[Rfam]
RNA sequence: CGGGGAAAUCCAGCUAAGGGAAUUCGGCAAAUUAGCCCCGUAACUUCGGGAGAAGGGGUGCCUGCCUUGUAAAAGGCAGGUCGCAGUGACAAGGGAAGGCUAACUGUCUAAUAACAACGUAAGUGAUCGCAAGUCCGUAAGGAUGAGUACGGUCACUGACUCCUGCCCAGUGUAGGUAUCUGAAAGCCCUUUACAAGGGGACGAAGGACCUAUAAACGGCGGGGGUAACUCUGACCCUCUUAAGGUAGCGUAGUACCUAGCCGCUUAAUUGGCGGCUUGCACGAAAGAAGGAAUGAGCCUUCUACUGUCCCUAGCUGGAAACCGGCGAAGUCAACAUCCUGGUGAAAAGUCCAGGGA
Numbered sequence: 001c002g003g004g005g006a007a008a009u010c011c012a013g014c015u016a017a018g019g020g021a022a023u024u025c026g027g028c029a030a031a032u033u034a035g036c037c038c039c040g041u042a043a044c045u046u047c048g049g050g051a052g053a054a055g056g057g058g059u060g061c062c063u064g065c066c067u068u069g070u071a072a073a074a075g076g077c078a079g080g081u082c083g084c085a086g087u088g089a090c091a092a093g094g095g096a097a098g099g100c101u102a103a104c105u106g107u108c109u110a111a112u113a114a115c116a117a118c119g120u121a122a123g124u125g126a127u128c129g130c131a132a133g134u135c136c137g138u139a140a141g142g143a144u145g146a147g148u149a150c151g152g153u154c155a156c157u158g159a160c161u162c163c164u165g166c167c168c169a170g171u172g173u174a175g176g177u178a179u180c181u182g183a184a185a186g187c188c189c190u191u192u193a194c195a196a197g198g199g200g201a202c203g204a205a206g207g208a209c210c211u212a213u214a215a216a217c218g219g220c221g222g223g224g225g226u227a228a229c230u231c232u233g234a235c236c237c238u239c240u241u242a243a244g245g246u247a248g249c250g251u252a253g254u255a256c257c258u259a260g261c262c263g264c265u266u267a268a269u270u271g272g273c274g275g276c277u278u279g280c281a282c283g284a285a286a287g288a289a290g291g292a293a294u295g296a297g298c299c300u301u302c303u304a305c306u307g308u309c310c311c312u313a314g315c316u317g318g319a320a321a322c323c324g325g326c327g328a329a330g331u332c333a334a335c336a337u338c339c340u341g342g343u344g345a346a347a348a349g350u351c352c353a354g355g356g357a
Stems, first nucleotide, its partner, number of pairs: 001324003009319008018310003035059005044049001060081009082086001094303007101295002105119003122157008130147001133144004160290002163287001165220003170217002172213005179208003187200004221239006240244001260276006338355005
A member of the RNA family "Archaeal large subunit ribosomal RNA" from an uncultured archaeon, 357 nucleotides of a longer RNA. Clan: LSU clan.